[Rfam]
RNA sequence: UCUAACCUAGACAACGUAAGCCCAACCUGCUCUUACGUCCUUGCGACCCUUUAGUCGCGCCAGUGUGAAUAAGCAUCAACAAAAACAU
Number, nucleotide and partner (000 for none) at each position: 001u000002c000003u000004a000005a000006c000007c000008u000009a000010g000011a000012c000013a000014a000015c000016g000017u000018a000019a000020g000021c000022c000023c000024a000025a000026c000027c000028u000029g000030c000031u000032c000033u000034u000035a000036c067037g066038u000039c000040c063041u062042u059043g058044c057045g056046a055047c054048c000049c000050u000051u000052u000053a000054g047055u046056c045057g044058c043059g042060c000061c000062a041063g040064u000065g000066u037067g036068a000069a000070u000071a000072a000073g000074c000075a000076u000077c000078a000079a000080c000081a000082a000083a000084a000085a000086c000087a000088u000
RNA: BsrC
Organism: Ornithinibacillus bavariensis